The family of this 63-nucleotide sequence is "RAGATH-18 RNA". Actinobacteria, Firmicutes, Fusobacteria, Thermotogae (1 example). Rfam classes the family as a small RNA.
[Rfam]
RNA sequence: CCUGUGGAGCGUCAUAAAAAAACGCGAGUAGCUUCGGCAAAAGCGGACGCGACGAAGUAGGAA
Dot-bracket structure: (((((...(((((.........(((.....((....))....))))))))......)))))..
Numbered sequence: 001c002c003u004g005u006g007g008a009g010c011g012u013c014a015u016a017a018a019a020a021a022a023c024g025c026g027a028g029u030a031g032c033u034u035c036g037g038c039a040a041a042a043g044c045g046g047a048c049g050c051g052a053c054g055a056a057g058u059a060g061g062a063a
Stems, first nucleotide, its partner, number of pairs: 001061005009050005023045003031038002